[Rfam]
RNA sequence: UCUGGCAAUGAUGACACACUUGCCCUCACUGAGAACACUGUUCAAUAAUGAGCCUUCACCGUGUGCUCAAAGGAGCUGAGCCAGA
Numbered sequence: 001u002c003u004g005g006c007a008a009u010g011a012u013g014a015c016a017c018a019c020u021u022g023c024c025c026u027c028a029c030u031g032a033g034a035a036c037a038c039u040g041u042u043c044a045a046u047a048a049u050g051a052g053c054c055u056u057c058a059c060c061g062u063g064u065g066c067u068c069a070a071a072g073g074a075g076c077u078g079a080g081c082c083a084g085a
Base pairs, nucleotide, nucleotide: 001085002084003083004082005081006080
RNA: Small nucleolar RNA SNORD103/SNORD85
Organism: Grallaria varia